[Rfam]
RNA sequence: UAACCUCUGGCUCUCAUUGUGAAUGUUG
Numbered sequence: 001u002a003a004c005c006u007c008u009g010g011c012u013c014u015c016a017u018u019g020u021g022a023a024u025g026u027u028g
Base pairs, nucleotide, nucleotide: 001028002027003026004025008023010020011019
Source information
A member of the RNA family "L19-Flavobacteria ribosomal protein leader", 28 nucleotides long. The base pairs follow the family's consensus structure, which is taken from published work. A reference for the family is Eckert and Weinberg (2020), "Discovery of 20 novel ribosomal leader candidates in bacteria and archaea", BMC Microbiol.